The family of this 164-nucleotide part of an RNA from Meloidogyne floridensis is "Eukaryotic small subunit ribosomal RNA". The family's consensus secondary structure is taken from published work. For this family Rfam cites "Crystal structure of the ribosome at 5.5 A resolution" (Yusupov et al., Science, 2001).
[Rfam]
RNA sequence: CCGCCCGUCGCUACGACCGAUUGGAUGAGUUCAUGAGACACUUGGAGCUGAUGCAGGCGCCCUAACAAGCGACUCGCAUUGGCAAAAAGCUUCUAGUGAUCGCAUCUAGAGGACGUAAAAGUCGUAACAAGGUUUCUGUAGGUGAACCUGCAGAAGGAUCAUUA
Numbered sequence: 001c002c003g004c005c006c007g008u009c010g011c012u013a014c015g016a017c018c019g020a021u022u023g024g025a026u027g028a029g030u031u032c033a034u035g036a037g038a039c040a041c042u043u044g045g046a047g048c049u050g051a052u053g054c055a056g057g058c059g060c061c062c063u064a065a066c067a068a069g070c071g072a073c074u075c076g077c078a079u080u081g082g083c084a085a086a087a088a089g090c091u092u093c094u095a096g097u098g099a100u101c102g103c104a105u106c107u108a109g110a111g112g113a114c115g116u117a118a119a120a121g122u123c124g125u126a127a128c129a130a131g132g133u134u135u136c137u138g139u140a141g142g143u144g145a146a147c148c149u150g151c152a153g154a155a156g157g158a159u160c161a162u163u164a
Stems, first nucleotide, its partner, number of pairs: 001131001003128001006124002009121001012117004017112002021108001023107005029101001031099004037093002041089003047083008056074002058071003133156010